[Rfam]
RNA sequence: AGCCUUGCGAAUGAGGCCAAUGCGAGAUAUUCAGGGCUGUUGGUGCUCCGUUCCUCGCGGGAAGGUCUGAGAUGUCGCGCUGUCUUCCGUGAUGGAGGUGCCUUUAGAUAGGCAGGGGGUAACAGAGACGUAUUCGUCGUUGUUGUUCGCCCGUGGAGGUCCUUUGGGGCUGAGGGUAAGCAACGGCGGAAUGAGAGUGAGCCCUCUGUGAGCGCGUGUAGCGAGAUUGGCAGUUGUACUCAAUUCAGACUACGCUCGCAGGCU
Number, nucleotide and partner (000 for none) at each position: 001a264002g263003c262004c261005u000006u000007g000008c258009g257010a256011a000012u000013g000014a000015g000016g231017c230018c229019a228020a000021u000022g058023c057024g056025a055026g054027a000028u000029a000030u000031u000032c000033a000034g048035g047036g046037c045038u000039g000040u000041u000042g000043g000044u000045g037046c036047u035048c034049c000050g000051u000052u000053c000054c026055u025056c024057g023058c022059g000060g000061g000062a000063a000064g000065g000066u000067c248068u247069g246070a245071g244072a000073u000074g000075u000076c210077g209078c208079g207080c000081u000082g000083u000084c098085u097086u096087c095088c094089g000090u000091g000092a000093u000094g088095g087096a086097g085098g084099u114100g113101c112102c111103u110104u000105u000106a000107g000108a000109u000110a103111g102112g101113c100114a099115g206116g205117g204118g203119g202120u199121a000122a000123c000124a000125g000126a000127g000128a000129c000130g000131u000132a000133u190134u189135c188136g187137u186138c185139g000140u000141u000142g000143u000144u000145g000146u000147u000148c000149g000150c000151c000152c000153g000154u000155g000156g000157a000158g000159g000160u000161c000162c000163u000164u000165u000166g000167g000168g000169g000170c000171u000172g000173a000174g000175g000176g000177u000178a000179a000180g000181c000182a000183a000184c000185g138186g137187c136188g135189g134190a133191a000192u000193g000194a000195g000196a000197g000198u000199g120200a000201g000202c119203c118204c117205u116206c115207u079208g078209u077210g076211a000212g000213c000214g000215c000216g000217u000218g000219u000220a000221g000222c000223g000224a000225g000226a000227u000228u019229g018230g017231c016232a000233g000234u000235u000236g000237u000238a000239c000240u000241c000242a000243a000244u071245u070246c069247a068248g067249a000250c000251u000252a000253c000254g000255c000256u010257c009258g008259c000260a000261g004262g003263c002264u001

A member of the RNA family "Nuclear RNase P" from Taenia asiatica, 264 nucleotides long. On this family, see Frank and Pace, Annu Rev Biochem 1998: "Ribonuclease P: unity and diversity in a tRNA processing ribozyme".